[Rfam]
RNA sequence: GACUGGCUCCGGGCCCCUCUGGCGGUCCGCAAGGUACGGACCGCGAUGUCGGAGCCCUUCA
Number, nucleotide and partner (000 for none) at each position: 001g000002a000003c000004u000005g000006g055007c054008u053009c052010c051011g050012g049013g000014c000015c000016c000017c000018u000019c000020u000021g000022g044023c043024g042025g041026u040027c039028c038029g037030c000031a000032a000033g000034g000035u000036a000037c029038g028039g027040a026041c025042c024043g023044c022045g000046a000047u000048g000049u012050c011051g010052g009053a008054g007055c006056c000057c000058u000059u000060c000061a000
RNA: terC RNA
Organism: Azospirillum sp. TSH58